[Rfam]
Shown here is a 370-nucleotide RNA from Thiorhodococcus minor, a member of the family "Bacterial RNase P class A". Taxonomically the source falls in Thiorhodococcus (Bacteria, Pseudomonadota, Chromatiales, Chromatiaceae). The family's consensus secondary structure is taken from published work. It scores 341 bits against the family's covariance model. It is annotated as a ribozyme.
RNA sequence: GGAGUCAGCCAGGCAGUCGCUCCUUCCCAUCCGGGGAGGGGAGGAAAGUCCGGGCUCCAUAGGGCAGGGUGCCAGGUAACGCCUGGGGGAUGCGAAUCCACGGAAAGUGCCACAGAAAAUAUACCGCCAACCCCGUUUCCGGACGGGCGGUAAGGGUGAAAUGGUGCGGUAAGAGCGCACCGCGCUGGUGGCAACAUCAGUGGCAGGGUAAACCCCACCCGGAGCAAGACCAAAUAGGGGGACUUGCGGCCUUGGCCGCGGCGCGCGGCCCGCGCGUGUCCCCGGGUAGGUCGCUUGAGUCGCGCGGUGACGUGCGAUCUAGACGAAUGACUGUCCUCGACAGAACCCGGCUUAUCGGCUGACUCCCACC
Numbered sequence: 001g002g003a004g005u006c007a008g009c010c011a012g013g014c015a016g017u018c019g020c021u022c023c024u025u026c027c028c029a030u031c032c033g034g035g036g037a038g039g040g041g042a043g044g045a046a047a048g049u050c051c052g053g054g055c056u057c058c059a060u061a062g063g064g065c066a067g068g069g070u071g072c073c074a075g076g077u078a079a080c081g082c083c084u085g086g087g088g089g090a091u092g093c094g095a096a097u098c099c100a101c102g103g104a105a106a107g108u109g110c111c112a113c114a115g116a117a118a119a120u121a122u123a124c125c126g127c128c129a130a131c132c133c134c135g136u137u138u139c140c141g142g143a144c145g146g147g148c149g150g151u152a153a154g155g156g157u158g159a160a161a162u163g164g165u166g167c168g169g170u171a172a173g174a175g176c177g178c179a180c181c182g183c184g185c186u187g188g189u190g191g192c193a194a195c196a197u198c199a200g201u202g203g204c205a206g207g208g209u210a211a212a213c214c215c216c217a218c219c220c221g222g223a224g225c226a227a228g229a230c231c232a233a234a235u236a237g238g239g240g241g242a243c244u245u246g247c248g249g250c251c252u253u254g255g256c257c258g259c260g261g262c263g264c265g266c267g268g269c270c271c272g273c274g275c276g277u278g279u280c281c282c283c284g285g286g287u288a289g290g291u292c293g294c295u296u297g298a299g300u301c302g303c304g305c306g307g308u309g310a311c312g313u314g315c316g317a318u319c320u321a322g323a324c325g326a327a328u329g330a331c332u333g334u335c336c337u338c339g340a341c342a343g344a345a346c347c348c349g350g351c352u353u354a355u356c357g358g359c360u361g362a363c364u365c366c367c368a369c370c
Stems, first nucleotide, its partner, number of pairs: 001366010011355001012335007020041009046353003050350005055224004062271004067220005072086005087101001088099004102215002107213002109209003124155002126151003132147006163181006182204001183202008228292004238283006262276005299318008